The record is a 96-nucleotide RNA sequence from Mazuvirus scam7, which matches "wcaG RNA" in Rfam. Taxonomically the source falls in Mazuvirus scam7 (Viruses, Duplodnaviria, Heunggongvirae, Caudoviricetes). By type it is a cis-regulatory element.

RNA sequence: AAAGGUUUCUCACUCUUCCUUAAAGAGUGAGUGGUGCGGAUGAUUUCAUCGCAUGGUUUUGCGAUUCCAUUUAAAGAUCGUAUGGCGAGCAUGUUA
Numbered sequence: 001a002a003a004g005g006u007u008u009c010u011c012a013c014u015c016u017u018c019c020u021u022a023a024a025g026a027g028u029g030a031g032u033g034g035u036g037c038g039g040a041u042g043a044u045u046u047c048a049u050c051g052c053a054u055g056g057u058u059u060u061g062c063g064a065u066u067c068c069a070u071u072u073a074a075a076g077a078u079c080g081u082a083u084g085g086c087g088a089g090c091a092u093g094u095u096a
Stems, first nucleotide, its partner, number of pairs: 009031007041051003053070004060082006